[Rfam]
This 73-nucleotide sequence from Halorussus sp. MSC15.2 belongs to the Rfam family "tRNA". The source organism's lineage runs through Archaea, Methanobacteriati, Methanobacteriota, Haladaptataceae and Halorussus. By type it is a transfer RNA. A search with the family's covariance model found it, with a score of 75 bits.
RNA sequence: GCCGUCGUAGCUCAGUUGGUAGAGCGCCACGCUGUUAACGUGGUGGUCCCAGGUUCGAGUCCUGGCGACGGCG
Numbered sequence: 001g002c003c004g005u006c007g008u009a010g011c012u013c014a015g016u017u018g019g020u021a022g023a024g025c026g027c028c029a030c031g032c033u034g035u036u037a038a039c040g041u042g043g044u045g046g047u048c049c050c051a052g053g054u055u056c057g058a059g060u061c062c063u064g065g066c067g068a069c070g071g072c073g
Base pairs, nucleotide, nucleotide: 001072002071003070004069005068006067007066010025011024012023013022027043028042029041030040031039049065050064051063052062053061